This 108-nucleotide RNA from Lederbergia galactosidilytica belongs to the Rfam family "SAM riboswitch aptamer (S box leader)". A search with the family's covariance model found it, with a score of 94 bits. A reference for the family is Grundy and Henkin (1998), "The S box regulon: a new global transcription termination control system for methionine and cysteine biosynthesis genes in gram-positive bacteria", Mol Microbiol.

RNA sequence: AAUUUAUCCAGAGAGACUGAGGGAAGGGCCCUAUGACGUCCGGCAACCCCUUGCAUAGCAAGGAAGGUGCCAACUCCUACAGAAUGUAUCCAUUCUGAAAGAUAAAUC
Numbered sequence: 001a002a003u004u005u006a007u008c009c010a011g012a013g014a015g016a017c018u019g020a021g022g023g024a025a026g027g028g029c030c031c032u033a034u035g036a037c038g039u040c041c042g043g044c045a046a047c048c049c050c051u052u053g054c055a056u057a058g059c060a061a062g063g064a065a066g067g068u069g070c071c072a073a074c075u076c077c078u079a080c081a082g083a084a085u086g087u088a089u090c091c092a093u094u095c096u097g098a099a100a101g102a103u104a105a106a107u108c
Stems, first nucleotide, its partner, number of pairs: 002107007013041001015040003021031003026078003042071004047067002049063004075100001080097006